Notes:
This 172-nucleotide sequence from a Cyclobacteriaceae bacterium belongs to the Rfam family "Group II catalytic intron D1-D4-3". Lineage of the source: Bacteria > Bacteroidota > Cytophagia > Cytophagales > Cyclobacteriaceae. The match comes from Rfam's covariance-model search (122 bits). Rfam's curators write: Group II introns are found in rRNA, tRNA and mRNA of organelles in fungi, plants and protists, and also in mRNA in bacteria.
RNA sequence: UAAGGAGUGAUCCUUGAACUGAAGGAAGCAGGACUGCAAAAGUCUGUACUGAAGAACAUGAACCACAUACAGAGGCAUGCCACUUCGGGUGAGUGAGCACAUCAUCACGAAGCCUGUUGGUGCAAAAGAGGUGGUAUGUAGAUGUGGCAGAGAUAGACGGAAGGAUAAGUGU
Number, nucleotide and partner (000 for none) at each position: 001u016002a015003a014004g013005g012006a011007g000008u000009g000010a000011u006012c005013c004014u003015u002016g001017a000018a000019c000020u000021g000022a000023a000024g000025g000026a000027a000028g172029c171030a170031g000032g000033a000034c000035u000036g000037c164038a000039a000040a000041a000042g158043u157044c156045u155046g154047u152048a000049c150050u149051g148052a000053a000054g000055a000056a000057c000058a000059u000060g000061a000062a000063c147064c146065a145066c144067a143068u142069a000070c000071a000072g000073a000074g000075g139076c138077a137078u000079g135080c134081c133082a132083c131084u130085u129086c000087g115088g114089g113090u112091g000092a000093g108094u107095g106096a105097g000098c000099a000100c000101a000102u000103c000104a000105u096106c095107a094108c093109g000110a000111a000112g090113c089114c088115u087116g000117u000118u000119g000120g000121u000122g000123c000124a000125a000126a000127a000128g000129a085130g084131g083132u082133g081134g080135u079136a000137u077138g076139u075140a000141g000142a068143u067144g066145u065146g064147g063148c051149a050150g049151a000152g047153a000154u046155a045156g044157a043158c042159g000160g000161a000162a000163g000164g037165a000166u000167a000168a000169g000170u030171g029172u028